[Rfam]
RNA: Plastid-clpP 5UTR RNA
RNA sequence: CAUUCUGGUCGUAAGACCAAAGAGCAAGCGAUCUAUUCUAUACCCGAUAAGUACCAAUACGCAAUGGGA
Numbered sequence: 001c002a003u004u005c006u007g008g009u010c011g012u013a014a015g016a017c018c019a020a021a022g023a024g025c026a027a028g029c030g031a032u033c034u035a036u037u038c039u040a041u042a043c044c045c046g047a048u049a050a051g052u053a054c055c056a057a058u059a060c061g062c063a064a065u066g067g068g069a
Base pairs, nucleotide, nucleotide: 003022004021006019007018008017009016010015043068044067045066051060052059053058